Annotation
The family of this 106-nucleotide sequence from Pseudomonas japonica is "TPP riboswitch aptamer (THI element)". The organism belongs to Pseudomonas, within Bacteria. Rfam links the family to the GO term thiamine pyrophosphate binding. The base pairs follow the family's consensus structure, which is taken from published work. The literature on the family includes a 2002 paper in J Biol Chem by Rodionov et al., "Comparative genomics of thiamin biosynthesis in procaryotes. New genes and regulatory mechanisms". A search with the family's covariance model found it, with a score of 88 bits.
[Rfam]
RNA sequence: AAGUUCUUGUCGGGGUGCCUUGUGUUGAGGCUGAGAUCGGAAAAUUCCGGAUCCCGUUGAACCUGAUCAGGUUAGCGCCUGCGUAGGGAACAAGAUUGCUCGCUUC
Numbered sequence: 001a002a003g004u005u006c007u008u009g010u011c012g013g014g015g016u017g018c019c020u021u022g023u024g025u026u027g028a029g030g031c032u033g034a035g036a037u038c039g040g041a042a043a044a045u046u047c048c049g050g051a052u053c054c055c056g057u058u059g060a061a062c063c064u065g066a067u068c069a070g071g072u073u074a075g076c077g078c079c080u081g082c083g084u085a086g087g088g089a090a091c092a093a094g095a096u097u098g099c100u101c102g103c104u105u106c
Base pairs, nucleotide, nucleotide: 006094007093008092009091010090011056012055013054014053016050017031018030019029020028021027038049039048040047041046062087063086064085065084068081069080070079071078